[Rfam]
RNA sequence: CCGGGGGCUGGCGCCCCCGGCUAGACGGUGUCGCCCCUUCGGGGCU
Numbered sequence: 001c002c003g004g005g006g007g008c009u010g011g012c013g014c015c016c017c018c019g020g021c022u023a024g025a026c027g028g029u030g031u032c033g034c035c036c037c038u039u040c041g042g043g044g045c046u
Stems, first nucleotide, its partner, number of pairs: 001020008033045005
The family of this 46-nucleotide sequence from Caulifigura coniformis is "Acido-Lenti-1 RNA". It is annotated as a small RNA. NCBI's taxonomy places the organism under Bacteria, Planctomycetota, Planctomycetales, Planctomycetaceae, Caulifigura. A search with the family's covariance model found it, with a score of 44 bits.